[Rfam]
RNA sequence: UACGCAGUAGUCGUCGCAUCACGCACCAAUCUUUCGCCUUUUACUAAAGAUUGCCGUGCGGCGUCUACAUUUAAUGCUAUUUAUCUAAUUUUUCUUGGCGCUCAGGCGCCUA
Numbered sequence: 001u002a003c004g005c006a007g008u009a010g011u012c013g014u015c016g017c018a019u020c021a022c023g024c025a026c027c028a029a030u031c032u033u034u035c036g037c038c039u040u041u042u043a044c045u046a047a048a049g050a051u052u053g054c055c056g057u058g059c060g061g062c063g064u065c066u067a068c069a070u071u072u073a074a075u076g077c078u079a080u081u082u083a084u085c086u087a088a089u090u091u092u093u094c095u096u097g098g099c100g101c102u103c104a105g106g107c108g109c110c111u112a
Stems, first nucleotide, its partner, number of pairs: 004077003008067003012063007027053008097110005
Rfam assigns this 112-nucleotide sequence from Theileria parva to the family "U5 spliceosomal RNA".
The family's RNA type in Rfam is spliceosomal small nuclear RNA.
Lineage of the source: Eukaryota > Apicomplexa > Aconoidasida > Theileriidae > Theileria.
Rfam's curators put it in the seed alignment.